[Rfam]
RNA sequence: GGAUUCCCGUCGAGUAAGAACUAGCCAUUCACUCGUAGCGAGUCUUGGAGGAUUAAAGGUAACUUUAAUCUUUAAGCGUAGACAGUUAGGUUGCGGGCCGAAAGCCAAAUGGUUGAAGGGAUUGAGCUUCGAAAUGUUAGUAAAUCGAGAGGGCUGAUGCUUUUCGCAUAGCAGAAAGCAACAUUUUACUUUUCGUUAAGGCAAGAAGGGUAAAGCCUCUCCGGAGUCAGAGACCU
Dot-bracket structure: ..........((((...(((.[.[[..))).))))..((..(((((((((((((((((....)))))))))))...)).)))).))....................................((.((((((...............(((((((((..((((........))))...)))....(((((((((((......]].])))))))))))))))))))))))).)......

The family of this 236-nucleotide sequence from Gottfriedia endophytica is "Group II catalytic intron D1-D4-6". A search with the family's covariance model found it, with a score of 174 bits. The organism belongs to Gottfriedia, within Bacteria. The literature on the family includes a 2001 paper in Trends Genet by Bonen and Vogel, "The ins and outs of group II introns". Rfam 15.1 lists 1,617 matches to the family in 661 species.